[Rfam]
RNA sequence: GGUUUGUAGGCAGUGUAGUUAGCUGAUUGUACUCAUUGCUUUGCAAUCACUAACUUCAGUGCCAUCAAAAC
Numbered sequence: 001g002g003u004u005u006g007u008a009g010g011c012a013g014u015g016u017a018g019u020u021a022g023c024u025g026a027u028u029g030u031a032c033u034c035a036u037u038g039c040u041u042u043g044c045a046a047u048c049a050c051u052a053a054c055u056u057c058a059g060u061g062c063c064a065u066c067a068a069a070a071c
Stems, first nucleotide, its partner, number of pairs: 003069004009063002012060001014058002017055006024049008
The record is a 71-nucleotide sequence from Psophia crepitans, which matches "mir-34 microRNA precursor family" in Rfam. Pairs were carried over by alignment from the consensus structure, which was predicted with RNAalifold. About the family: Human mir-34a was discovered computationally and later experimentally verified. The mature sequence is excised from the 5' arm of the hairpin. The literature on the family includes a 2003 paper in Science by Lim et al., "Vertebrate microRNA genes". The organism belongs to Psophia, within Eukaryota.